[Rfam]
6S-Flavo RNA: a 109-nucleotide RNA from Tenacibaculum sp. SG-28.
RNA sequence: ACUCAACACUAUUAGAUUAAAAAGGAUAAGUCUUGAUUAGUAAAGUGUGCCAGCUCUGUUCUGGAUCCUUGAGGAAUCAGUUAGUCCUAAACCUGUUUAACAGGAGUUU
Number, nucleotide and partner (000 for none) at each position: 001a000002c000003u000004c000005a000006a000007c000008a000009c000010u000011a000012u000013u000014a000015g000016a000017u000018u000019a000020a000021a000022a000023a088024g087025g086026a085027u084028a000029a000030g000031u000032c000033u000034u079035g078036a077037u076038u075039a000040g000041u000042a000043a070044a069045g068046u000047g000048u000049g000050c064051c063052a062053g061054c000055u000056c000057u000058g000059u000060u000061c053062u052063g051064g050065a000066u000067c000068c045069u044070u043071g000072a000073g000074g000075a038076a037077u036078c035079a034080g000081u000082u000083a000084g027085u026086c025087c024088u023089a000090a000091a000092c000093c000094u000095g000096u000097u000098u000099a000100a000101c000102a000103g000104g000105a000106g000107u000108u000109u000

Taxonomically the source falls in Tenacibaculum (Bacteria, Bacteroidota, Flavobacteriia, Flavobacteriales). It scores 95 bits against the family's covariance model.